[Rfam]
RNA sequence: GUAUACUGAGCGCGAUUGCUUCGUAUAACCCCACUAAUAAGGUUUGGGGGUCUCUACCAGUUCCCGUAAUAGAGCUGAUUACGAAGAGUUAGAAUCCUCCC
Numbered sequence: 001g002u003a004u005a006c007u008g009a010g011c012g013c014g015a016u017u018g019c020u021u022c023g024u025a026u027a028a029c030c031c032c033a034c035u036a037a038u039a040a041g042g043u044u045u046g047g048g049g050g051u052c053u054c055u056a057c058c059a060g061u062u063c064c065c066g067u068a069a070u071a072g073a074g075c076u077g078a079u080u081a082c083g084a085a086g087a088g089u090u091a092g093a094a095u096c097c098u099c100c101c
Stems, first nucleotide, its partner, number of pairs: 019086007029049005058077006